[Rfam]
RNA sequence: CGGAAUUAAUCUGGCUAAGGGAAUUCGGCAAAUUGGCUCCGUAACUUCGGGAGAAGGAGUGCCUGCCAUGAAGAUGGCAGGUCGCAGUGACCAGGGAGCUCUAACUGUCUAAUACCAACAUAGGAGAUCGCAAACCCGAAAGGGCUAGUACGAUCUCUGAAUCCUGCCCAGUGCGGGUACCUGAAACUUCGGUCCAACGGAAAGAAGGGCCCGUAAACGGCGGGGGUAACUAUGACCCUCUUAAGGUAGCGUAGUACCUUGUCGCUUAAUUGGCGACUCGCAUGAAUGGAUCAAUGAGAGCUCUACUGUCCCUAGCCAGAAUCCGGUGAAGCUUACAUUCUAGUGCAAAGUCUAGAGA
Numbered sequence: 001c002g003g004a005a006u007u008a009a010u011c012u013g014g015c016u017a018a019g020g021g022a023a024u025u026c027g028g029c030a031a032a033u034u035g036g037c038u039c040c041g042u043a044a045c046u047u048c049g050g051g052a053g054a055a056g057g058a059g060u061g062c063c064u065g066c067c068a069u070g071a072a073g074a075u076g077g078c079a080g081g082u083c084g085c086a087g088u089g090a091c092c093a094g095g096g097a098g099c100u101c102u103a104a105c106u107g108u109c110u111a112a113u114a115c116c117a118a119c120a121u122a123g124g125a126g127a128u129c130g131c132a133a134a135c136c137c138g139a140a141a142g143g144g145c146u147a148g149u150a151c152g153a154u155c156u157c158u159g160a161a162u163c164c165u166g167c168c169c170a171g172u173g174c175g176g177g178u179a180c181c182u183g184a185a186a187c188u189u190c191g192g193u194c195c196a197a198c199g200g201a202a203a204g205a206a207g208g209g210c211c212c213g214u215a216a217a218c219g220g221c222g223g224g225g226g227u228a229a230c231u232a233u234g235a236c237c238c239u240c241u242u243a244a245g246g247u248a249g250c251g252u253a254g255u256a257c258c259u260u261g262u263c264g265c266u267u268a269a270u271u272g273g274c275g276a277c278u279c280g281c282a283u284g285a286a287u288g289g290a291u292c293a294a295u296g297a298g299a300g301c302u303c304u305a306c307u308g309u310c311c312c313u314a315g316c317c318a319g320a321a322u323c324c325g326g327u328g329a330a331g332c333u334u335a336c337a338u339u340c341u342a343g344u345g346c347a348a349a350g351u352c353u354a355g356a357g358a
Stems, first nucleotide, its partner, number of pairs: 001325004010320008019311003036060005045050001061082009083087001095304007102296002106120003123158008131148001135144003161291004166221003171218002173214005180209003188201004222240006241245001261277006339356005